[Rfam]
RNA sequence: GAGAGAAUCACAGCGCAAUUCUCCUCUGGCAUGGAGGCUGGUGGGUCUAGCAGGAUCUGUCAGCAAUGCUGCUGCCAUCUACGCCAAAGGAGAAUUGCCCUGCCAUUCAGAA
Number, nucleotide and partner (000 for none) at each position: 001g000002a000003g000004a000005g108006a107007a106008u105009c000010a000011c102012a101013g100014c000015g098016c097017a096018a095019u094020u000021c092022u091023c090024c089025u000026c000027u086028g085029g084030c083031a000032u081033g080034g079035a078036g000037g000038c000039u000040g000041g000042u000043g000044g000045g000046u000047c000048u000049a000050g000051c000052a000053g000054g000055a000056u000057c000058u000059g000060u000061c000062a000063g000064c000065a000066a000067u000068g000069c000070u000071g000072c000073u000074g000075c000076c000077a000078u035079c034080u033081a032082c000083g030084c029085c028086a027087a000088a000089g024090g023091a022092g021093a000094a019095u018096u017097g016098c015099c000100c013101u012102g011103c000104c000105a008106u007107u006108c005109a000110g000111a000112a000
Rfam assigns this 112-nucleotide RNA sequence from Panicum hallii to the family "mir-399 microRNA precursor family". The source organism's lineage runs through Eukaryota, Embryophyta, Mesangiospermae, Petrosaviidae and Panicum hallii. The family's consensus secondary structure was predicted with PFOLD. Gene Ontology terms of the family: miRNA-mediated post-transcriptional gene silencing and RISC complex. The family has 13 seed sequences and 2,396 matches in Rfam 15.1.